Shown here is a 37-nucleotide sequence from Flectobacillus sp. BAB-3569, a member of the family "DUF805b RNA".
Its Rfam clan is "DUF805 clan".
A search with the family's covariance model found it, with a score of 39 bits.
Rfam classes the family as a cis-regulatory element.
The organism belongs to Flectobacillus, within Bacteria.
RNA sequence: ACAGCGGCACCCGAAAAGCUGAGAGAGAGAGUAGGGA
Numbered sequence: 001a002c003a004g005c006g007g008c009a010c011c012c013g014a015a016a017a018g019c020u021g022a023g024a025g026a027g028a029g030a031g032u033a034g035g036g037a
Stems, first nucleotide, its partner, number of pairs: 002021004010036003